[Rfam]
RNA sequence: UGUUCCAUCCCCACUUUUCAAGCCUCGGAGCUGUGCCUCCAAUGGCUUUGGGGAAUGGACA
Numbered sequence: 001u002g003u004u005c006c007a008u009c010c011c012c013a014c015u016u017u018u019c020a021a022g023c024c025u026c027g028g029a030g031c032u033g034u035g036c037c038u039c040c041a042a043u044g045g046c047u048u049u050g051g052g053g054a055a056u057g058g059a060c061a
Stems, first nucleotide, its partner, number of pairs: 001061005008054006020048005025042001027040004031035001